The record is an 81-nucleotide RNA from Pleuronectes platessa, which matches "mir-31 microRNA precursor family" in Rfam. Pairs were carried over by alignment from the consensus structure, which was predicted with RNAalifold. The family has 75 seed sequences and 1,181 matches in Rfam 15.1.
RNA sequence: UCUUGGAAGGAAGGCAAGAUGUUGGCAUAGCUGAUGAGUUGAAAUCCCUGCUAUGCCAUCAAAUUGUCAUCUUUCUUUCCC
Number, nucleotide and partner (000 for none) at each position: 001u000002c000003u000004u000005g076006g075007a074008a073009g072010g071011a070012a000013g068014g067015c066016a065017a064018g000019a000020u061021g060022u000023u058024g057025g056026c055027a054028u053029a052030g051031c050032u000033g000034a000035u000036g000037a000038g000039u000040u000041g000042a000043a000044a000045u000046c000047c000048c000049u000050g031051c030052u029053a028054u027055g026056c025057c024058a023059u000060c021061a020062a000063a000064u017065u016066g015067u014068c013069a000070u011071c010072u009073u008074u007075c006076u005077u000078u000079c000080c000081c000
Its family is annotated with RISC complex and gene silencing by miRNA in the Gene Ontology. A search with the family's covariance model found it, with a score of 69 bits. For this family Rfam cites "The small RNA profile during Drosophila melanogaster development" (Aravin et al., Dev Cell, 2003). Lineage of the source: Eukaryota > Teleostei > Ctenosquamata > Pleuronectoidei > Pleuronectes.